The family of this 97-nucleotide RNA sequence from Clostridium sp. FS41 is "Purine riboswitch aptamer". The source organism's lineage runs through Bacteria, Bacillati, Clostridia, Eubacteriales and Clostridium. Its Rfam clan is "Purine riboswitches". Its family is annotated with purine nucleobase biosynthetic process in the Gene Ontology. Pairs were carried over by alignment from the consensus structure, which is taken from published work.
[Rfam]
RNA sequence: AAAAAAUAAUGCUAUUCACUAUGUAUAUCCUGAGAAUUGGCUCAGAGUUUCUACCAACUACCGUAAAGAGUUGACUACAUGGCUUUUGUAGUUGACU
Numbered sequence: 001a002a003a004a005a006a007u008a009a010u011g012c013u014a015u016u017c018a019c020u021a022u023g024u025a026u027a028u029c030c031u032g033a034g035a036a037u038u039g040g041c042u043c044a045g046a047g048u049u050u051c052u053a054c055c056a057a058c059u060a061c062c063g064u065a066a067a068g069a070g071u072u073g074a075c076u077a078c079a080u081g082g083c084u085u086u087u088g089u090a091g092u093u094g095a096c097u
Stems, first nucleotide, its partner, number of pairs: 019082007030045005055073005
A search with the family's covariance model found it, with a score of 61 bits.